Rfam assigns this 75-nucleotide RNA from Actinacidiphila reveromycinica to the family "ASpks TB sRNA". The source organism's lineage runs through Bacteria, Bacillati, Actinomycetota, Streptomycetaceae and Actinacidiphila. The base pairs follow the family's consensus structure, which is taken from published work.

RNA sequence: CUUCACCGAACCCAACAACAGAGGCCGACCCUCCGGCCGGCCCUGACCGUAAGUGGCCAGCAGCGCCUGCGCCUC
Numbered sequence: 001c002u003u004c005a006c007c008g009a010a011c012c013c014a015a016c017a018a019c020a021g022a023g024g025c026c027g028a029c030c031c032u033c034c035g036g037c038c039g040g041c042c043c044u045g046a047c048c049g050u051a052a053g054u055g056g057c058c059a060g061c062a063g064c065g066c067c068u069g070c071g072c073c074u075c
Base pairs, nucleotide, nucleotide: 016024031071033069038065039064043060044059045058047056048055049054